[Rfam]
RNA sequence: GGAUGUAAGUGUGAUCUGUCUGUAACAUCUGGCACCCUGUUCCUCGCCAGGCUUGAUUUGGCUGAUCCGGCUGGCUAGGCGGGUGUCCCUCCCUCACUGCUCCAUGUGUAUUCCUCCCAAAGAGGACGACUUUCCCCAAUAGAGACAUAACUGUUCCUCAGUCAAGGGUAUACGGUAGCUGCACUCCCCUGCUAGAACCUCCAAACAAACUCAAGGUCCAUUUGUAGGAGAACGUAGUGUAGUCAAGCUUCGAAGACUGCAGACCCACCCAGGUGAGGCACUACAUGGGGCAGGCUGCCAUUGUUU
Numbered sequence: 001g002g003a004u005g006u007a008a009g010u011g012u013g014a015u016c017u018g019u020c021u022g023u024a025a026c027a028u029c030u031g032g033c034a035c036c037c038u039g040u041u042c043c044u045c046g047c048c049a050g051g052c053u054u055g056a057u058u059u060g061g062c063u064g065a066u067c068c069g070g071c072u073g074g075c076u077a078g079g080c081g082g083g084u085g086u087c088c089c090u091c092c093c094u095c096a097c098u099g100c101u102c103c104a105u106g107u108g109u110a111u112u113c114c115u116c117c118c119a120a121a122g123a124g125g126a127c128g129a130c131u132u133u134c135c136c137c138a139a140u141a142g143a144g145a146c147a148u149a150a151c152u153g154u155u156c157c158u159c160a161g162u163c164a165a166g167g168g169u170a171u172a173c174g175g176u177a178g179c180u181g182c183a184c185u186c187c188c189c190u191g192c193u194a195g196a197a198c199c200u201c202c203a204a205a206c207a208a209a210c211u212c213a214a215g216g217u218c219c220a221u222u223u224g225u226a227g228g229a230g231a232a233c234g235u236a237g238u239g240u241a242g243u244c245a246a247g248c249u250u251c252g253a254a255g256a257c258u259g260c261a262g263a264c265c266c267a268c269c270c271a272g273g274u275g276a277g278g279c280a281c282u283a284c285a286u287g288g289g290g291c292a293g294g295c296u297g298c299c300a301u302u303g304u305u306u
Stems, first nucleotide, its partner, number of pairs: 001103003005097002008094002011091001018089001025086007033078001035074002037070003044065002046062003112147001114144003124135003178248003184242002187239001189237004199230004205225005271306003275301001277299003281293002284290001

Shown here is a 306-nucleotide sequence from Podilymbus podiceps, a member of the family "7SK RNA". The family has 45 seed sequences and 49,373 matches in Rfam 15.1. The family's consensus secondary structure is taken from published work. From the family's description: 7SK was discovered as an abundant small nuclear RNA in the mid-70s but a possible function has only recently been suggested. It is annotated as a non-coding RNA gene.